[Rfam]
RNA sequence: AAGUGAUAUGCACGCAAAGCGUGCGUGAUAUUGUUGCCUGAGGCAACAGUGAUAUUUGCGCUUUGCGCAAGUGAUAUUGCAA
Numbered sequence: 001a002a003g004u005g006a007u008a009u010g011c012a013c014g015c016a017a018a019g020c021g022u023g024c025g026u027g028a029u030a031u032u033g034u035u036g037c038c039u040g041a042g043g044c045a046a047c048a049g050u051g052a053u054a055u056u057u058g059c060g061c062u063u064u065g066c067g068c069a070a071g072u073g074a075u076a077u078u079g080c081a082a
Stems, first nucleotide, its partner, number of pairs: 008026008030050008054072007
Rfam assigns this 82-nucleotide RNA from Firmicutes bacterium CAG:475 to the family "Gut-1 RNA". It is annotated as a small RNA. NCBI's taxonomy places the organism under Bacteria, Bacillati, Bacillota.